The record is a 75-nucleotide RNA sequence from Alectura lathami, which matches "Small nucleolar RNA SNORD19" in Rfam. Rfam 15.1 lists 1,431 matches to the family in 609 species. A search with the family's covariance model found it, with a score of 36 bits.

[Rfam]
RNA sequence: GAAAAAUGAAGAUACUCUGAUAGCUUCUUAUUGUUACAUGAGGACCUCAGAUCCAACUCUGAUUUCACUCUGGUU
Numbered sequence: 001g002a003a004a005a006a007u008g009a010a011g012a013u014a015c016u017c018u019g020a021u022a023g024c025u026u027c028u029u030a031u032u033g034u035u036a037c038a039u040g041a042g043g044a045c046c047u048c049a050g051a052u053c054c055a056a057c058u059c060u061g062a063u064u065u066c067a068c069u070c071u072g073g074u075u
Stems, first nucleotide, its partner, number of pairs: 001066004

A reference for the family is Huttenhofer et al. (2001), "RNomics: an experimental approach that identifies 201 candidates for novel, small, non-messenger RNAs in mouse", EMBO J. Rfam links the family to the GO terms nucleolus and RNA processing. Rfam classes the family as a C/D-box small nucleolar RNA. The pairing is the family consensus, mapped onto this sequence. Taxonomically the source falls in Alectura (Eukaryota, Sarcopterygii, Saurischia, Coelurosauria).